[Rfam]
RNA: Small nucleolar RNA snoR26
RNA sequence: ACAGCAUCAAUGAUGUACACCUUCCUUUUGUUAUCCUUGCACUUUGAUUACCUGUGAAGAAACUUGUGGGGAAAUUUUAGUCUGAGAUGCUU
Numbered sequence: 001a002c003a004g005c006a007u008c009a010a011u012g013a014u015g016u017a018c019a020c021c022u023u024c025c026u027u028u029u030g031u032u033a034u035c036c037u038u039g040c041a042c043u044u045u046g047a048u049u050a051c052c053u054g055u056g057a058a059g060a061a062a063c064u065u066g067u068g069g070g071g072a073a074a075u076u077u078u079a080g081u082c083u084g085a086g087a088u089g090c091u092u
Stems, first nucleotide, its partner, number of pairs: 003091006